[Rfam]
RNA: Streptomyces sRNA scr5239
Organism: Streptomyces sp. ISL-11
RNA sequence: AUCCCACCUUCCCCGCACAGGAGGGUGGAGCGAGGCCCGGCGCUCUCUGCCCUGAUCGCGCCACGGCCUCCCAUCGGCCUCGCCGGCCGCGGGGUCCGCACACCCCGCGCGACCGGUGGGCCGAUAACGGCUCCGGGCUGCGGUGCCGACCGGGUCGAGGGUCCCGGCCGGGCGC
Numbered sequence: 001a002u003c004c005c006a007c008c009u010u011c012c013c014c015g016c017a018c019a020g021g022a023g024g025g026u027g028g029a030g031c032g033a034g035g036c037c038c039g040g041c042g043c044u045c046u047c048u049g050c051c052c053u054g055a056u057c058g059c060g061c062c063a064c065g066g067c068c069u070c071c072c073a074u075c076g077g078c079c080u081c082g083c084c085g086g087c088c089g090c091g092g093g094g095u096c097c098g099c100a101c102a103c104c105c106c107g108c109g110c111g112a113c114c115g116g117u118g119g120g121c122c123g124a125u126a127a128c129g130g131c132u133c134c135g136g137g138c139u140g141c142g143g144u145g146c147c148g149a150c151c152g153g154g155u156c157g158a159g160g161g162u163c164c165c166g167g168c169c170g171g172g173c174g175c
Stems, first nucleotide, its partner, number of pairs: 004028003008024005032070005039062002042059002044055002074124007083115001130144003134140002148169001150167005